[Rfam]
Shown here is a 139-nucleotide RNA sequence, a member of the family "Group II catalytic intron D1-D4-4". Rfam's curators write: Group II introns are found in rRNA, tRNA and mRNA of organelles in fungi, plants and protists, and also in mRNA in bacteria. Rfam's curators put it in the seed alignment.
RNA sequence: CAGCGGGUGCGAAUCCCGUCCGGCAACUUUCGCUCCGGCCGGUAGCAACUGGAGCAGCCGUGGAGGUAACGAAGCGGCUGAAGCCUCUGGUGUAGAGGGUCUUGUAAGGGACUUGGCGACCAUGCAGGCCGUAAUGCGA
Numbered sequence: 001c002a003g004c005g006g007g008u009g010c011g012a013a014u015c016c017c018g019u020c021c022g023g024c025a026a027c028u029u030u031c032g033c034u035c036c037g038g039c040c041g042g043u044a045g046c047a048a049c050u051g052g053a054g055c056a057g058c059c060g061u062g063g064a065g066g067u068a069a070c071g072a073a074g075c076g077g078c079u080g081a082a083g084c085c086u087c088u089g090g091u092g093u094a095g096a097g098g099g100u101c102u103u104g105u106a107a108g109g110g111a112c113u114u115g116g117c118g119a120c121c122a123u124g125c126a127g128g129c130c131g132u133a134a135u136g137c138g139a
Stems, first nucleotide, its partner, number of pairs: 020042005050089005055080006065070001097114006116132003